[Rfam]
RNA: Small nucleolar RNA SNORA63
RNA sequence: GUGCAGGAUAAGUUACAAUGCAGCUUGUUUGGUGCUGCUUUGUCGUUCCCCCUGCAAACAGUAACUGUCUCCUCGCUAUACCUGUCAGUCAGUAUCCCUCGACUGCCAGGCACGUAAGGUUUCAGACAU
Dot-bracket structure: ..(((((.......((((.(((((.........))))).)))).......))))).........................((((.((((............)))).))))...................